The record is a 95-nucleotide RNA sequence from Nyssa sinensis, which matches "MIR535 microRNA precursor family" in Rfam.
The base pairs follow the family's consensus structure, which was predicted with RNAalifold.
Its family is annotated with RISC complex and miRNA-mediated post-transcriptional gene silencing in the Gene Ontology.
The family has 20 seed sequences and 544 matches in Rfam 15.1.

[Rfam]
RNA sequence: CAGAUCGUAUGACAACGACAGAAAGCACGCUUGUACACAAUCAUGUCCUGUGCAUGAAUGUUGACAAGCGUGCUCUCUCUCGUUGUCAAGCAAUG
Dot-bracket structure: .........(((((.((..((...((((((((((.............................))))))))))...))..)).))))).......
Numbered sequence: 001c002a003g004a005u006c007g008u009a010u011g012a013c014a015a016c017g018a019c020a021g022a023a024a025g026c027a028c029g030c031u032u033g034u035a036c037a038c039a040a041u042c043a044u045g046u047c048c049u050g051u052g053c054a055u056g057a058a059u060g061u062u063g064a065c066a067a068g069c070g071u072g073c074u075c076u077c078u079c080u081c082g083u084u085g086u087c088a089a090g091c092a093a094u095g
Stems, first nucleotide, its partner, number of pairs: 010088005016082002020078002025073010